[Rfam]
RNA sequence: GCCGAGCCAGGUAGCGGUGGCUUGUAACCCGAGAGGGGGCAGUGAGGUGGUGCGGAUGCCUGGUCGUUGCGGUUGGGCCUGGGUUCCGUGGGUACGCACUAUGCGGCCCGCCCGUUCCAAGUUGAAUAGUUGUGCGCUGGCGCCUGGGCGAAGGCCCGAGCGUCCGUUCACCUGGAGUGGUGGGCACUGCGUGAGGCUGGCUUCACAGAGCAGCGAGUACCGCCCGCUUCCAACGGUGGAAGGAUAACGGGCCGCGGCUACCCUGGCCCGCUUCUGGCCCAAGAGCCCUCCAUGGUAGACCACCAUCCUCU
Numbered sequence: 001g002c003c004g005a006g007c008c009a010g011g012u013a014g015c016g017g018u019g020g021c022u023u024g025u026a027a028c029c030c031g032a033g034a035g036g037g038g039g040c041a042g043u044g045a046g047g048u049g050g051u052g053c054g055g056a057u058g059c060c061u062g063g064u065c066g067u068u069g070c071g072g073u074u075g076g077g078c079c080u081g082g083g084u085u086c087c088g089u090g091g092g093u094a095c096g097c098a099c100u101a102u103g104c105g106g107c108c109c110g111c112c113c114g115u116u117c118c119a120a121g122u123u124g125a126a127u128a129g130u131u132g133u134g135c136g137c138u139g140g141c142g143c144c145u146g147g148g149c150g151a152a153g154g155c156c157c158g159a160g161c162g163u164c165c166g167u168u169c170a171c172c173u174g175g176a177g178u179g180g181u182g183g184g185c186a187c188u189g190c191g192u193g194a195g196g197c198u199g200g201c202u203u204c205a206c207a208g209a210g211c212a213g214c215g216a217g218u219a220c221c222g223c224c225c226g227c228u229u230c231c232a233a234c235g236g237u238g239g240a241a242g243g244a245u246a247a248c249g250g251g252c253c254g255c256g257g258c259u260a261c262c263c264u265g266g267c268c269c270g271c272u273u274c275u276g277g278c279c280c281a282a283g284a285g286c287c288c289u290c291c292a293u294g295g296u297a298g299a300c301c302a303c304c305a306u307c308c309u310c311u
Stems, first nucleotide, its partner, number of pairs: 001040003004023006028037003044310004048305005054300001057297002059294001061292001062290002066286001070285001073282007081269005088263001090262001092261003096258002103255008112243002115241005121234004128228003132171003136167002139164005145158005172177001179224005188217001190215003197208003

Plant signal recognition particle RNA: a 311-nucleotide RNA sequence from Oryza brachyantha. It scores 202 bits against the family's covariance model. The family's consensus secondary structure is taken from published work. The family is grouped with related families in Rfam's "SRP clan".